The record is a 102-nucleotide RNA from Alteribacter keqinensis, which matches "Purine riboswitch aptamer" in Rfam.
RNA sequence: AUCAUUCGUUAAAAAAAUACUCGUAUAACGGUGAGAAUAUGGCUCACAAGUCUCUACCAAACAACCGUAAAUUGUUUGACUACGAGUGAAAAGGUCAGCUUG
Numbered sequence: 001a002u003c004a005u006u007c008g009u010u011a012a013a014a015a016a017a018u019a020c021u022c023g024u025a026u027a028a029c030g031g032u033g034a035g036a037a038u039a040u041g042g043c044u045c046a047c048a049a050g051u052c053u054c055u056a057c058c059a060a061a062c063a064a065c066c067g068u069a070a071a072u073u074g075u076u077u078g079a080c081u082a083c084g085a086g087u088g089a090a091a092a093g094g095u096c097a098g099c100u101u102g
Stems, first nucleotide, its partner, number of pairs: 018088008031047005058078007
The source organism's lineage runs through Bacteria, Bacillati, Caryophanales, Bacillaceae and Alteribacter.